Eukaryotic large subunit ribosomal RNA: a 575-nucleotide part of an RNA from Puccinia triticina. The source organism's lineage runs through Eukaryota, Opisthokonta, Pucciniomycetes, Puccinia and Puccinia triticina.
RNA sequence: ACCCCCCUUUUCAACCAAAAUUUUAAGCUACAGGUGGACAUAUCAAUAAGCGGAGGAUAUGAGGCCAAGGAUUAACGGCGAGUGAAUGAAGAGGAAAGCCCAAAAUUUGUAAAUCUCAGGCUCUUUCAGAGUCCGAGUUGAGAACUGUUUUCAGUGCUGGCAGCAUCAUUGAGGGUGAUAUGGACUACCAGUGCAUGUUCAUGAUAUGGACUACCAAGAGUCGAGUUGUUUCGAGUUGUUUGGGGAAUGCAGCUCAAAGUGGGUGGUAAAUUCCAUCUAGAGGGAAAGAUGAAAGGAAAAGAUGAAAAGAAGUACCGUGAGGGAUGAAAUUGUUAAAAGGGAAGUUAGACUUGUUUAGACUUGUUAGUUAUUGACUUGUUUUUAAUAAAAGGGAGUAUUCUACAUCAAAUUUUUUGGAGGCGGAUUUUUGGGGUUUAAGCAGUCUCUGGCUGUGUUAUGUCCUGAGCUUUGAUCAAUGCUUAAGAUUGAGGAAGGCAGUAAGCACUUUUAUUGGGACAAAUUAAUGUUUACUGAGGAUGUUGGUGUAAUGCUUAAAUGACCCGUCUUGAAACAGG
Numbered sequence: 001a002c003c004c005c006c007c008u009u010u011u012c013a014a015c016c017a018a019a020a021u022u023u024u025a026a027g028c029u030a031c032a033g034g035u036g037g038a039c040a041u042a043u044c045a046a047u048a049a050g051c052g053g054a055g056g057a058u059a060u061g062a063g064g065c066c067a068a069g070g071a072u073u074a075a076c077g078g079c080g081a082g083u084g085a086a087u088g089a090a091g092a093g094g095a096a097a098g099c100c101c102a103a104a105a106u107u108u109g110u111a112a113a114u115c116u117c118a119g120g121c122u123c124u125u126u127c128a129g130a131g132u133c134c135g136a137g138u139u140g141a142g143a144a145c146u147g148u149u150u151u152c153a154g155u156g157c158u159g160g161c162a163g164c165a166u167c168a169u170u171g172a173g174g175g176u177g178a179u180a181u182g183g184a185c186u187a188c189c190a191g192u193g194c195a196u197g198u199u200c201a202u203g204a205u206a207u208g209g210a211c212u213a214c215c216a217a218g219a220g221u222c223g224a225g226u227u228g229u230u231u232c233g234a235g236u237u238g239u240u241u242g243g244g245g246a247a248u249g250c251a252g253c254u255c256a257a258a259g260u261g262g263g264u265g266g267u268a269a270a271u272u273c274c275a276u277c278u279a280g281a282g283g284g285a286a287a288g289a290u291g292a293a294a295g296g297a298a299a300a301g302a303u304g305a306a307a308a309g310a311a312g313u314a315c316c317g318u319g320a321g322g323g324a325u326g327a328a329a330u331u332g333u334u335a336a337a338a339g340g341g342a343a344g345u346u347a348g349a350c351u352u353g354u355u356u357a358g359a360c361u362u363g364u365u366a367g368u369u370a371u372u373g374a375c376u377u378g379u380u381u382u383u384a385a386u387a388a389a390a391g392g393g394a395g396u397a398u399u400c401u402a403c404a405u406c407a408a409a410u411u412u413u414u415u416g417g418a419g420g421c422g423g424a425u426u427u428u429u430g431g432g433g434u435u436u437a438a439g440c441a442g443u444c445u446c447u448g449g450c451u452g453u454g455u456u457a458u459g460u461c462c463u464g465a466g467c468u469u470u471g472a473u474c475a476a477u478g479c480u481u482a483a484g485a486u487u488g489a490g491g492a493a494g495g496c497a498g499u500a501a502g503c504a505c506u507u508u509u510a511u512u513g514g515g516a517c518a519a520a521u522u523a524a525u526g527u528u529u530a531c532u533g534a535g536g537a538u539g540u541u542g543g544u545g546u547a548a549u550g551c552u553u554a555a556a557u558g559a560c561c562c563g564u565c566u567u568g569a570a571a572c573a574g575g
Stems, first nucleotide, its partner, number of pairs: 024055001027051003035042002065069001075083002099284003105114003120222001121220004131211005136205001139201004144196001147164001149162001151160002167171001174189004233255007261278005345558001349557001351555002357412003361408003417546001419544001421542002561575002564573001